Eukaryotic large subunit ribosomal RNA: a 387-nucleotide part of an RNA from Plenodomus lingam. The sequence is in the family's curated seed alignment. NCBI's taxonomy places the organism under Eukaryota, Ascomycota, Pleosporomycetidae, Plenodomus, Plenodomus lingam.

RNA sequence: GACCUUGCCCCAAUGGUAAUACCGCUUAGUACGAGAGGAACCGCGGUUUCAGAUAAUUGGUUUUUGCGGCUGUCUGACCAGGCAUUGCCGCGAAGCUACCAUCUGCUGGAUUAUGGCUGAACGCCUCUAAGUCAGAAUCCAUGCCAGAACGGGGUGAUUUCCGCCUGCACCAGUCGGAUACGAAUAGGCCUUUGGCCCAGAACCUUACCAGAUCGGCGUUGGCAGCCCCAUUGAAGUUGGGGUUGUUAGCCGGUGUAUUGCAAUUGUACAGUGCGCAGGAUUGAAUCCUUUGCAGACGACUUAGUUGUCUGGCCGGGUCGUGUAAGUAGUCGAGUAGCCUUGUUGUUACGAGCUACUGAGCGUAAGCCCGUUGCUAGCUUGGUUGAA
Numbered sequence: 001g002a003c004c005u006u007g008c009c010c011c012a013a014u015g016g017u018a019a020u021a022c023c024g025c026u027u028a029g030u031a032c033g034a035g036a037g038g039a040a041c042c043g044c045g046g047u048u049u050c051a052g053a054u055a056a057u058u059g060g061u062u063u064u065u066g067c068g069g070c071u072g073u074c075u076g077a078c079c080a081g082g083c084a085u086u087g088c089c090g091c092g093a094a095g096c097u098a099c100c101a102u103c104u105g106c107u108g109g110a111u112u113a114u115g116g117c118u119g120a121a122c123g124c125c126u127c128u129a130a131g132u133c134a135g136a137a138u139c140c141a142u143g144c145c146a147g148a149a150c151g152g153g154g155u156g157a158u159u160u161c162c163g164c165c166u167g168c169a170c171c172a173g174u175c176g177g178a179u180a181c182g183a184a185u186a187g188g189c190c191u192u193u194g195g196c197c198c199a200g201a202a203c204c205u206u207a208c209c210a211g212a213u214c215g216g217c218g219u220u221g222g223c224a225g226c227c228c229c230a231u232u233g234a235a236g237u238u239g240g241g242g243u244u245g246u247u248a249g250c251c252g253g254u255g256u257a258u259u260g261c262a263a264u265u266g267u268a269c270a271g272u273g274c275g276c277a278g279g280a281u282u283g284a285a286u287c288c289u290u291u292g293c294a295g296a297c298g299a300c301u302u303a304g305u306u307g308u309c310u311g312g313c314c315g316g317g318u319c320g321u322g323u324a325a326g327u328a329g330u331c332g333a334g335u336a337g338c339c340u341u342g343u344u345g346u347u348a349c350g351a352g353c354u355a356c357u358g359a360g361c362g363u364a365a366g367c368c369c370g371u372u373g374c375u376a377g378c379u380u381g382g383u384u385g386a387a
Stems, first nucleotide, its partner, number of pairs: 005157007014146004019049001021047005050105005058098003065092005071084005107141003114134005164279005170273001284384004288304002292300001309377005315369003319362002326356004331352001334349005